MIR5269 microRNA precursor family: a 79-nucleotide RNA from Medicago truncatula.
RNA sequence: UUGGUUUAAAUCAUUGCAGAUCUACACUUUGAAAAUAGAACUCGCAUAAAGUGGUGGGACAUACAUUGAUUUCAUCCAA
Numbered sequence: 001u002u003g004g005u006u007u008a009a010a011u012c013a014u015u016g017c018a019g020a021u022c023u024a025c026a027c028u029u030u031g032a033a034a035a036u037a038g039a040a041c042u043c044g045c046a047u048a049a050a051g052u053g054g055u056g057g058g059a060c061a062u063a064c065a066u067u068g069a070u071u072u073c074a075u076c077c078a079a
Stems, first nucleotide, its partner, number of pairs: 001079004006074001008072006015065002018062001022057003025053007

Rfam links the family to the GO terms RISC complex and miRNA-mediated post-transcriptional gene silencing. The source organism's lineage runs through Eukaryota, Embryophyta, Spermatophyta, Pentapetalae and Medicago.